Bacterial large signal recognition particle RNA: a 264-nucleotide sequence from Coprococcus sp. CAG:782. The signal recognition particle (SRP) is a universally conserved ribonucleoprotein involved in the co-translational targeting of proteins to membranes. Pairs were carried over by alignment from the consensus structure, which is taken from published work.

RNA sequence: CCAUGCAACCGGGGAGGUAGCGGCGCCCUGUACCUGCAAUCCGCUAUAGCGGGGGUGAUGGUCUUUUUGAGGGAUGUCUAUUGUAGAGCUGCCCUAAGUAAGUGAUGUUGAUGUCUGGGUCUUGCGCAACAGGACUCUUCGAACCGUGUCAGGACGGAGACGUAGCAGCACUAAGAGGAAUCUCCUGUGUGCCGUGAGGGUGCCUGGGCUGAGUUAACUGCUGAGGUAACGUUUAUGAUAGCUUUUCGAGAUAAGACCGCAUGG
Numbered sequence: 001c002c003a004u005g006c007a008a009c010c011g012g013g014g015a016g017g018u019a020g021c022g023g024c025g026c027c028c029u030g031u032a033c034c035u036g037c038a039a040u041c042c043g044c045u046a047u048a049g050c051g052g053g054g055g056u057g058a059u060g061g062u063c064u065u066u067u068u069g070a071g072g073g074a075u076g077u078c079u080a081u082u083g084u085a086g087a088g089c090u091g092c093c094c095u096a097a098g099u100a101a102g103u104g105a106u107g108u109u110g111a112u113g114u115c116u117g118g119g120u121c122u123u124g125c126g127c128a129a130c131a132g133g134a135c136u137c138u139u140c141g142a143a144c145c146g147u148g149u150c151a152g153g154a155c156g157g158a159g160a161c162g163u164a165g166c167a168g169c170a171c172u173a174a175g176a177g178g179a180a181u182c183u184c185c186u187g188u189g190u191g192c193c194g195u196g197a198g199g200g201u202g203c204c205u206g207g208g209c210u211g212a213g214u215u216a217a218c219u220g221c222u223g224a225g226g227u228a229a230c231g232u233u234u235a236u237g238a239u240a241g242c243u244u245u246u247c248g249a250g251a252u253a254a255g256a257c258c259g260c261a262u263g264g
Stems, first nucleotide, its partner, number of pairs: 001264006008056003011029004016024001018022001033053005062256004067251002071247004078241010090228002094225002097222003102218002104215003113209008121198006127189002130187005136179005146171004154163003